Rfam assigns this 163-nucleotide sequence to the family "FuFi-1 RNA". The family's consensus secondary structure is taken from published work. It is one of the family's seed sequences.
RNA sequence: UGCGCUGGCGACGGGGCGAAUAAUUUGCGGAACGCUAACCGCAUAAGCAGCGCAGGCUGCUAUAGAAGCACAGGUGCUGUACUGUGUCCCUAUGGGUGCAACAGUUUUAUGGCAAACAAAUUGGUGAUGAGAGCAGUCGGUGACAGCACACCGGCUGCUCUUG
Numbered sequence: 001u002g003c004g005c006u007g008g009c010g011a012c013g014g015g016g017c018g019a020a021u022a023a024u025u026u027g028c029g030g031a032a033c034g035c036u037a038a039c040c041g042c043a044u045a046a047g048c049a050g051c052g053c054a055g056g057c058u059g060c061u062a063u064a065g066a067a068g069c070a071c072a073g074g075u076g077c078u079g080u081a082c083u084g085u086g087u088c089c090c091u092a093u094g095g096g097u098g099c100a101a102c103a104g105u106u107u108u109a110u111g112g113c114a115a116a117c118a119a120a121u122u123g124g125u126g127a128u129g130a131g132a133g134c135a136g137u138c139g140g141u142g143a144c145a146g147c148a149c150a151c152c153g154g155c156u157g158c159u160c161u162u163g
Stems, first nucleotide, its partner, number of pairs: 001054007026043005033126005055106005068087006074149007088096003130161012
The family's RNA type in Rfam is small RNA.